[Rfam]
RNA sequence: AAUAAACACAGGGGGAGCCAUAAUUGGCUGAGAGUGAAUGUAAAUUCAGACCCUUUGAACCUGUUCGUUAGUACGAGCGUAGGGAUUGGUGUAAAAACUUAGUG
Numbered sequence: 001a002a003u004a005a006a007c008a009c010a011g012g013g014g015g016a017g018c019c020a021u022a023a024u025u026g027g028c029u030g031a032g033a034g035u036g037a038a039u040g041u042a043a044a045u046u047c048a049g050a051c052c053c054u055u056u057g058a059a060c061c062u063g064u065u066c067g068u069u070a071g072u073a074c075g076a077g078c079g080u081a082g083g084g085a086u087u088g089g090u091g092u093a094a095a096a097a098c099u100u101a102g103u104g
Base pairs, nucleotide, nucleotide: 006092007091008090009089011054012053013052014051017028018027019026020025035048036047037046038045039044060083061082062081063080064077065076066075067074
The family of this 104-nucleotide RNA sequence from Ligilactobacillus ceti is "TPP riboswitch aptamer (THI element)". The base pairs follow the family's consensus structure, which is taken from published work. NCBI's taxonomy places the organism under Bacteria, Bacillati, Bacillota, Bacilli, Ligilactobacillus ceti. Rfam links the family to the GO term thiamine pyrophosphate binding.